[Rfam]
RNA sequence: UCCUUGCAUCUAUGUGCUUCGGCGUUGCCGACAUAUGCCCAGGCAGUCGAGACCUUCCAGGCUGCAAGUGCGGGAGACUGCACUGGUCACUUUUUUCACGGGCGCAGCGCGUCCAUCCACCCACAAGGGAUUCCCCUCCCUUGUGGGCGG
Dot-bracket structure: ..........(((((...(((((...))))).))))).....((((((..[[[[.....)))))).(((((((....)))))))]]]]...........................((.....((((((((......))))))))....))